[Rfam]
RNA sequence: CUUAGAAAAAAGCAUACUGUUGAAAAAAAGGAUGCAAAGUCACGGGUCUAAAGCAUUAUUGCCAUGGCGUCCGGACUGCCUGG
Numbered sequence: 001c002u003u004a005g006a007a008a009a010a011a012g013c014a015u016a017c018u019g020u021u022g023a024a025a026a027a028a029a030g031g032a033u034g035c036a037a038a039g040u041c042a043c044g045g046g047u048c049u050a051a052a053g054c055a056u057u058a059u060u061g062c063c064a065u066g067g068c069g070u071c072c073g074g075a076c077u078g079c080c081u082g083g
Stems, first nucleotide, its partner, number of pairs: 012035002017030002020027002038077004043073003046068003053062003

A member of the RNA family "c-di-GMP-I riboswitch aptamer" from Lentibacillus amyloliquefaciens, 83 nucleotides long. It scores 50 bits against the family's covariance model. Pairs were carried over by alignment from the consensus structure, which is taken from published work.